[Rfam]
RNA sequence: UAUUACAAAGAUAAAAACACAGCUCUGGUUGGUAGUCCAGACGUAGCAUAAGCUAUCAGUAACCUGCCUCCUUGGUUGUCCGUUCUUUGUUCAUUUUAU
Number, nucleotide and partner (000 for none) at each position: 001u000002a000003u000004u000005a090006c089007a088008a087009a086010g085011a084012u000013a000014a000015a000016a000017a000018c000019a000020c000021a000022g042023c000024u000025c040026u039027g038028g037029u000030u000031g000032g000033u000034a000035g000036u000037c028038c027039a026040g025041a000042c022043g056044u055045a054046g053047c052048a000049u000050a000051a000052g047053c046054u045055a044056u043057c000058a000059g000060u000061a000062a000063c000064c000065u000066g076067c075068c074069u000070c000071c000072u000073u000074g068075g067076u066077u000078g000079u000080c000081c000082g000083u000084u011085c010086u009087u008088u007089g006090u005091u000092c000093a000094u000095u000096u000097u000098a000099u000
azaaromatic riboswitch aptamer (yjdF RNA): a 99-nucleotide RNA sequence from Anaerocolumna sedimenticola.